[Rfam]
RNA sequence: UUAAUUAGAGGGAUUGGAAGGUUCCGCUUAUGCUAACCCUAAUAUUGGGGGUCUGUUGAAAACCUCUUUAAGAUAUGCGUGUUGUUUUAUUGGCUGACUUUCAGCGCGCAUUGAGAGGAGUUGCUGCCCAGGACUAAAAAAUGUCAGCUGGGAGUCCUUCCUCUCCCUUAUUUCUGCCUCACAACCUGGACUCUUUAUUUAGCGGUGCCCCAUUUGUCGAGGCCGCAGUCAGUCUUGUUCUUAUACGCUGCUGUUGCGAAGAGUUCGUCUCUGUCAGCCUCCGGGGCAACGCCUUGAAUUUGGAGAGCCUGGGAAUGUAACAAGGGGUAGGGAAAAUAACGAGAGCUGAGUUGGCUUCUCCUGUGCUGUUCCUGAGCUGUGGAACUUGCAAUCGCAGUCGGCUCUGACACUU
Numbered sequence: 001u002u003a004a005u006u007a008g009a010g011g012g013a014u015u016g017g018a019a020g021g022u023u024c025c026g027c028u029u030a031u032g033c034u035a036a037c038c039c040u041a042a043u044a045u046u047g048g049g050g051g052u053c054u055g056u057u058g059a060a061a062a063c064c065u066c067u068u069u070a071a072g073a074u075a076u077g078c079g080u081g082u083u084g085u086u087u088u089a090u091u092g093g094c095u096g097a098c099u100u101u102c103a104g105c106g107c108g109c110a111u112u113g114a115g116a117g118g119a120g121u122u123g124c125u126g127c128c129c130a131g132g133a134c135u136a137a138a139a140a141a142u143g144u145c146a147g148c149u150g151g152g153a154g155u156c157c158u159u160c161c162u163c164u165c166c167c168u169u170a171u172u173u174c175u176g177c178c179u180c181a182c183a184a185c186c187u188g189g190a191c192u193c194u195u196u197a198u199u200u201a202g203c204g205g206u207g208c209c210c211c212a213u214u215u216g217u218c219g220a221g222g223c224c225g226c227a228g229u230c231a232g233u234c235u236u237g238u239u240c241u242u243a244u245a246c247g248c249u250g251c252u253g254u255u256g257c258g259a260a261g262a263g264u265u266c267g268u269c270u271c272u273g274u275c276a277g278c279c280u281c282c283g284g285g286g287c288a289a290c291g292c293c294u295u296g297a298a299u300u301u302g303g304a305g306a307g308c309c310u311g312g313g314a315a316u317g318u319a320a321c322a323a324g325g326g327g328u329a330g331g332g333a334a335a336a337u338a339a340c341g342a343g344a345g346c347u348g349a350g351u352u353g354g355c356u357u358c359u360c361c362u363g364u365g366c367u368g369u370u371c372c373u374g375a376g377c378u379g380u381g382g383a384a385c386u387u388g389c390a391a392u393c394g395c396a397g398u399c400g401g402c403u404c405u406g407a408c409a410c411u412u
Stems, first nucleotide, its partner, number of pairs: 005170001007168002010165003016161005022154004063118005076110009093148006099141003173331007191307007202292003206288006224258005230253004236245003260272004343404004348399001350398004364390003369384004
This 412-nucleotide RNA sequence belongs to the Rfam family "Vertebrate telomerase RNA". On this family, see Fragnet et al., J Biol Chem 2005: "Comparative functional study of the viral telomerase RNA based on natural mutations". By type it is a non-coding RNA gene. About the family: Telomerase is a ribonucleoprotein reverse transcriptase that synthesises telomeric DNA. Telomerase RNAs differ greatly in sequence and structure between vertebrates, ciliates and yeasts, but they share a 5' pseudoknot structure close to the template sequence. Vertebrate telomerase RNAs have a 3' H/ACA snoRNA-like domain. Rfam links the family to the GO terms telomerase catalytic core complex, telomerase activity and telomere maintenance via telomerase.